Rfam assigns this 84-nucleotide RNA from Bombyx mori to the family "mir-2807 microRNA precursor family".
[Rfam]
Nucleotides: 084
Stems, first nucleotide, its partner, number of pairs: 008078003012074005018068001020066007028058002034052003040046001
Number, partner (000 for none) and nucleotide at each position: 001000u002000u003000a004000a005000c006000u007000c008078a009077a010076a011000a012074u013073u014072g015071u016070a017000u018068g019000g020066a021065g022064u023063u024062g025061g026060g027000u028058u029057g030000u031000u032000u033000g034052c035051c036050u037000a038000c039000c040046u041000u042000u043000g044000c045000c046040a047000c048000u049000a050036g051035g052034g053000g054000c055000g056000c057029u058028g059000u060026u061025c062024c063023a064022a065021c066020u067000a068018c069000a070016u071015a072014c073013a074012a075000a076010u077009u078008u079000g080000a081000g082000u083000u084000a
Pairs were carried over by alignment from the consensus structure, which was predicted with RNAalifold.